[Rfam]
RNA sequence: GCAAUAGUACGGGAGAACUCAAGGGUGGGUCGGCAUGUACCCCUUUAUAUGCAGAAAGGGGGUGAUGCCGAUAACAGUGUUUGAAGCGUUAAUGUUUGCGAUAUCUUUUGCAAGUCUUAUCGUUUCAAUACUGUCUUACAACCAAAAGAAAUAAUCCACCCUUGAGUUUCCGGAGCUACGGGUGGAUUAUUUCCGCUCUGCUGCCGAUCCCCCUUGCAGGGAACCGUUCUAUUGCAGGACCGAGGGUGUUGCAGCACCCUUG
Numbered sequence: 001g002c003a004a005u006a007g008u009a010c011g012g013g014a015g016a017a018c019u020c021a022a023g024g025g026u027g028g029g030u031c032g033g034c035a036u037g038u039a040c041c042c043c044u045u046u047a048u049a050u051g052c053a054g055a056a057a058g059g060g061g062g063u064g065a066u067g068c069c070g071a072u073a074a075c076a077g078u079g080u081u082u083g084a085a086g087c088g089u090u091a092a093u094g095u096u097u098g099c100g101a102u103a104u105c106u107u108u109u110g111c112a113a114g115u116c117u118u119a120u121c122g123u124u125u126c127a128a129u130a131c132u133g134u135c136u137u138a139c140a141a142c143c144a145a146a147a148g149a150a151a152u153a154a155u156c157c158a159c160c161c162u163u164g165a166g167u168u169u170c171c172g173g174a175g176c177u178a179c180g181g182g183u184g185g186a187u188u189a190u191u192u193c194c195g196c197u198c199u200g201c202u203g204c205c206g207a208u209c210c211c212c213c214u215u216g217c218a219g220g221g222a223a224c225c226g227u228u229c230u231a232u233u234g235c236a237g238g239a240c241c242g243a244g245g246g247u248g249u250u251g252c253a254g255c256a257c258c259c260u261u262g
Stems, first nucleotide, its partner, number of pairs: 001235005007229001009227001011225001018166008028156003036064002040062007074134006087100002112125002178192001211221002241262009

Shown here is a 262-nucleotide sequence from Parageobacillus caldoxylosilyticus, a member of the family "BsrG". It scores 100 bits against the family's covariance model. By type it is a small RNA. From the family's description: bsrE, bsrG and bsrH pair through intermolecular interactions with antisense sRNAs. They form type I toxin/antitoxin system that includes an mRNA encoding for a short, toxic peptide (bsrE, bsrG and bsrH) and an antitoxin that is comprised of an antisense RNA. bsrG encodes a 39-amino-acid toxin, and the 180 nucleotide antisense sRNA called SR4 acts as the antitoxin (they overlap by 123 nucleotides). SR4 interaction with the 3'UTR of bsrG RNA promotes bsrG degradation and inhibits its translation.